Nucleotides: 105
Stems, first nucleotide, its partner, number of pairs: 007099001009097005020039007041085003044081002048079001050077001054072006
Number, partner (000 for none) and nucleotide at each position: 001000g002000c003000a004000g005000g006000g007099c008000a009097c010096u011095c012094u013093g014000g015000a016000a017000a018000g019000c020039g021038u022037c023036u024035u025034c026033g027000c028000c029000c030000u031000g032000g033026c034025g035024g036023a037022g038021g039020c040000c041085a042084c043083c044081g045080a046000c047000g048079g049000u050077g051000u052000a053000a054072g055071u056070g057069c058068g059067g060000c061000u062000g063000c064000a065000a066000g067059c068058c069057g070056u071055g072054c073000c074000a075000g076000g077050c078000u079048c080045u081044c082000a083043g084042g085041u086000u087000u088000c089000c090000c091000g092000a093013c094012a095011g096010a097009g098000g099007g100000g101000g102000c103000g104000a105000u